A member of the RNA family "Group II catalytic intron D1-D4-3" from Peptostreptococcaceae bacterium pGA-8, 169 nucleotides long. NCBI's taxonomy places the organism under Bacteria, Bacillati, Bacillota, Clostridia, Peptostreptococcaceae. Rfam's curators write: Group II introns are found in rRNA, tRNA and mRNA of organelles in fungi, plants and protists, and also in mRNA in bacteria.
[Rfam]
RNA sequence: UAGAUGGCGACAUCUAGGAGAGAAGAAGCAAUAGCGAAAUCGUGGCUUGACGAACAGGAACAGAAUAUAAGGCGUAAAAGGUGGGCAAGCUAGCCUAAGAUAGUAAAGACCCAAAAGACAACCGUAAACCCAAAGCGUAAAUUCUGCAAGUAAACGAUGAAAGUAUUAG
Numbered sequence: 001u002a003g004a005u006g007g008c009g010a011c012a013u014c015u016a017g018g019a020g021a022g023a024a025g026a027a028g029c030a031a032u033a034g035c036g037a038a039a040u041c042g043u044g045g046c047u048u049g050a051c052g053a054a055c056a057g058g059a060a061c062a063g064a065a066u067a068u069a070a071g072g073c074g075u076a077a078a079a080g081g082u083g084g085g086c087a088a089g090c091u092a093g094c095c096u097a098a099g100a101u102a103g104u105a106a107a108g109a110c111c112c113a114a115a116a117g118a119c120a121a122c123c124g125u126a127a128a129c130c131c132a133a134a135g136c137g138u139a140a141a142u143u144c145u146g147c148a149a150g151u152a153a154a155c156g157a158u159g160a161a162a163g164u165a166u167u168a169g
Stems, first nucleotide, its partner, number of pairs: 001016006034164002039158005045151005061146006072138003080130003083111002086108001089104004